Nucleotides: 073
Stems, first nucleotide, its partner, number of pairs: 003071005010065003014061002018057005026050002029048004
Number, partner (000 for none) and nucleotide at each position: 001000u002000a003071a004070c005069u006068g007067a008000a009000c010065g011064g012063g013000a014061g015060a016000a017000g018057u019056u020055a021054u022053a023000g024000c025000g026050c027049u028000c029048u030047a031046u032045g033000u034000u035000a036000c037000u038000u039000u040000a041000u042000a043000g044000c045032c046031a047030u048029a049027a050026g051000c052000g053022u054021a055020u056019a057018g058000c059000u060015u061014u062000u063012c064011c065010c066000c067007u068006u069005g070004g071003u072000u073000g